[Rfam]
RNA sequence: GAGUCAUAGUGAACAUUCAACGCUGUCGGUGAGUUUGCAAGUGAGAGAAACCAUCGAGUGUUGAGUGUACCCUGCCUC
Dot-bracket structure: .((.((.......(((((((((...((((((.((((...........)))))))))).))))))))).....)).)).

Shown here is a 78-nucleotide RNA from Sinocyclocheilus anshuiensis, a member of the family "mir-181 microRNA precursor family".